The record is a 132-nucleotide RNA from Nannospalax galili, which matches "Small nucleolar RNA SNORA9" in Rfam. Rfam classes the family as an H/ACA-box small nucleolar RNA. It scores 124 bits against the family's covariance model. Its family is annotated with RNA processing and nucleolus in the Gene Ontology. The family is grouped with related families in Rfam's "SNORA9 clan". About the family: ACA9 is a member of the H/ACA class of snoRNA that guide the sites of modification of uridines to pseudouridines. Lineage of the source: Eukaryota > Craniata > Teleostomi > Euteleostomi > Nannospalax. Pairs were carried over by alignment from the consensus structure, which was predicted with PFOLD. Rfam 15.1 lists 1,202 matches to the family in 518 species.
RNA sequence: UAGCCAGCCUCCUGCGUGCUUGGGUCUGCCGGGACCCUGUGCAUUCCUACAGUGCUUUCCAGAACUGUUUUGGAGUGGUUUGGGCCUUGCCCUGCUUUCUCCAGAGCAAGGUAAUAGAAACUUCAGACAAUU
Numbered sequence: 001u002a003g004c005c006a007g008c009c010u011c012c013u014g015c016g017u018g019c020u021u022g023g024g025u026c027u028g029c030c031g032g033g034a035c036c037c038u039g040u041g042c043a044u045u046c047c048u049a050c051a052g053u054g055c056u057u058u059c060c061a062g063a064a065c066u067g068u069u070u071u072g073g074a075g076u077g078g079u080u081u082g083g084g085c086c087u088u089g090c091c092c093u094g095c096u097u098u099c100u101c102c103a104g105a106g107c108a109a110g111g112u113a114a115u116a117g118a119a120a121c122u123u124c125a126g127a128c129a130a131u132u
Base pairs, nucleotide, nucleotide: 003059006056007055008054017043018042019041022037023036024035025034026033071125072124073123074122075121085111086110087109088108089107090106092104093103094102